[Rfam]
Rfam assigns this 115-nucleotide RNA from Trifolium medium to the family "MIR2593 microRNA precursor family".
Nucleotides: 115
Base pairs, nucleotide, nucleotide: 002114003113004112005111006110007109010106011105013103015101016100017099018098019097020096021095022094023093024092025091027089028088029087030086031085032084033083034082035081036080037079038078039077040076041075042074043073044072049067051065052064
Number, partner (000 for none) and nucleotide at each position: 001000a002114u003113a004112u005111a006110a007109g008000a009000g010106a011105a012000g013103g014000u015101u016100u017099g018098c019097u020096u021095u022094u023093u024092a025091g026000a027089u028088u029087c030086a031085u032084u033083g034082a035081g036080u037079u038078u039077u040076u041075a042074a043073u044072g045000u046000a047000u048000c049067u050000a051065g052064u053000c054000u055000a056000u057000a058000a059000u060000a061000u062000a063000g064052g065051c066000c067049a068000a069000a070000u071000a072044c073043a074042u075041u076040a077039a078038a079037a080036a081035c082034u083033c084032a085031a086030u087029g088028a089027a090000u091025c092024u093023a094022a095021a096020a097019a098018g099017c100016a101015a102000a103013u104000a105011u106010u107000a108000u109007c110006u111005u112004a113003u114002a115000u